The family of this 264-nucleotide RNA sequence is "Small Cajal body specific RNA 6". A reference for the family is Darzacq et al. (2002), "Cajal body-specific small nuclear RNAs: a novel class of 2'-O-methylation and pseudouridylation guide RNAs", EMBO J. The family's consensus secondary structure is taken from published work.
RNA sequence: GGUCUGUGAUGAAUAGUAAAAGGUCUGAUUAUCCCAAGACUUGCAGUUCCAUGGCCUCUUCUCCCAGCAGUUUCUCCCCAGCCAUGGCACAGCAAUGGUGUGGCUGGCAGAGUGUUUGCUGACAGUGUGAGAUGUGCUCAGGUCAUGUUCACCUGGAGCAGCGGAGACAUGACUGAGAUCAGCAUCCAACAGUCCUACUUGAAGGAGUUUUGGGGUCUUGGAUUGGUCUAACUGGACAUGUGAUCUGACUUUUUUGCUGAGACC
Numbered sequence: 001g002g003u004c005u006g007u008g009a010u011g012a013a014u015a016g017u018a019a020a021a022g023g024u025c026u027g028a029u030u031a032u033c034c035c036a037a038g039a040c041u042u043g044c045a046g047u048u049c050c051a052u053g054g055c056c057u058c059u060u061c062u063c064c065c066a067g068c069a070g071u072u073u074c075u076c077c078c079c080a081g082c083c084a085u086g087g088c089a090c091a092g093c094a095a096u097g098g099u100g101u102g103g104c105u106g107g108c109a110g111a112g113u114g115u116u117u118g119c120u121g122a123c124a125g126u127g128u129g130a131g132a133u134g135u136g137c138u139c140a141g142g143u144c145a146u147g148u149u150c151a152c153c154u155g156g157a158g159c160a161g162c163g164g165a166g167a168c169a170u171g172a173c174u175g176a177g178a179u180c181a182g183c184a185u186c187c188a189a190c191a192g193u194c195c196u197a198c199u200u201g202a203a204g205g206a207g208u209u210u211u212g213g214g215g216u217c218u219u220g221g222a223u224u225g226g227u228c229u230a231a232c233u234g235g236a237c238a239u240g241u242g243a244u245c246u247g248a249c250u251u252u253u254u255u256g257c258u259g260a261g262a263c264c
Base pairs, nucleotide, nucleotide: 001264002263003262004261037246038245039244041242048222049221050220051219053217054216055215061207062206063205064204065121066120067119068118069117070116078107079106080105081104082103083102084101085100086099129187131186132185133184134183135182144171145170146169147168148167149166150164153161
Rfam describes the family as follows. U88 is small Cajal body specific RNA (scaRNA). scaRNAs are a novel class of small nuclear RNAs which localise to the Cajal bodies. U88 is found associated with both fibrillarin and Gar1p and co-localises with coilin in Cajal bodies. A search with the family's covariance model found it, with a score of 118 bits.